[Rfam]
This 126-nucleotide sequence from Diceros bicornis belongs to the Rfam family "Small nucleolar RNA SNORA77". Pairs were carried over by alignment from the consensus structure, which was predicted with RNAalifold. ACA63 (SNORA77) is a member of the H/ACA class of snoRNAs that guide the sites of modification of uridines to pseudouridines. This snoRNA was identified by computational screening and its expression in mouse experimentally verified by Northern blot and primer extension analysis. ACA63 is proposed to guide the pseudouridylation of 18S rRNA U814. The literature on the family includes a 2006 paper in RNA by Schattner et al., "A computational screen for mammalian pseudouridylation guide H/ACA RNAs". Lineage of the source: Eukaryota > Mammalia > Eutheria > Boreoeutheria > Diceros bicornis. A search with the family's covariance model found it, with a score of 127 bits.
RNA sequence: GCAGACUCACUCUGCACCCGGCUGCAGGCCCAGGCGGGUGCUUUUUCCGUCUGCCACAGGAACAUUCCGGGUUGCUGUGACCACCUUGACCUGUCAAGGGCGAUGCAGCCACCCCGGGACAGAGAG
Numbered sequence: 001g002c003a004g005a006c007u008c009a010c011u012c013u014g015c016a017c018c019c020g021g022c023u024g025c026a027g028g029c030c031c032a033g034g035c036g037g038g039u040g041c042u043u044u045u046u047c048c049g050u051c052u053g054c055c056a057c058a059g060g061a062a063c064a065u066u067c068c069g070g071g072u073u074g075c076u077g078u079g080a081c082c083a084c085c086u087u088g089a090c091c092u093g094u095c096a097a098g099g100g101c102g103a104u105g106c107a108g109c110c111a112c113c114c115c116g117g118g119a120c121a122g123a124g125a126g
Stems, first nucleotide, its partner, number of pairs: 001054006014041007022033003066117002069114004074109006082102001084100003